Notes: The record is a 112-nucleotide RNA from Paeniglutamicibacter cryotolerans, which matches "SAM (S-adenosyl methionine) riboswitch aptamer" in Rfam. The source organism's lineage runs through Bacteria, Actinomycetota, Actinomycetes, Micrococcales and Paeniglutamicibacter.
[Rfam]
RNA sequence: CUUCAAGAGAUGCGGCGCCAAGCUCCGACUGGCCGCGCACCAACCCCCAGGUUCACGGGGUGGUUCGGAUGACGAAGUGGCACCGUCCAGACCGGCGGUGCAAGAACCAGGG
Numbered sequence: 001c002u003u004c005a006a007g008a009g010a011u012g013c014g015g016c017g018c019c020a021a022g023c024u025c026c027g028a029c030u031g032g033c034c035g036c037g038c039a040c041c042a043a044c045c046c047c048c049a050g051g052u053u054c055a056c057g058g059g060g061u062g063g064u065u066c067g068g069a070u071g072a073c074g075a076a077g078u079g080g081c082a083c084c085g086u087c088c089a090g091a092c093c094g095g096c097g098g099u100g101c102a103a104g105a106a107c108c109a110g111g112g
Stems, first nucleotide, its partner, number of pairs: 001077004009038001011037006021030002039064003044060003080101008

Description
SAM-IV is a mRNA element that regulates gene expression via direct sensing of S-adenosylmethionine (SAM or AdoMet). SAM-IV riboswitches share conserved nucleotide positions with the previously described SAM-I riboswitches sequence analysis and molecular recognition experiments suggest that SAM-I and SAM-IV riboswitches share similar ligand binding sites, but have different scaffolds. The match comes from Rfam's covariance-model search (67 bits). Pairs were carried over by alignment from the consensus structure, which is taken from published work.